A member of the RNA family "L19-Flavobacteria ribosomal protein leader", 28 nucleotides long.
The literature on the family includes a 2020 paper in BMC Microbiol by Eckert and Weinberg, "Discovery of 20 novel ribosomal leader candidates in bacteria and archaea".

RNA sequence: CAACCGCUGACGAAAAUCGUGAAUGUUG
Numbered sequence: 001c002a003a004c005c006g007c008u009g010a011c012g013a014a015a016a017u018c019g020u021g022a023a024u025g026u027u028g
Stems, first nucleotide, its partner, number of pairs: 001028004008023001010020004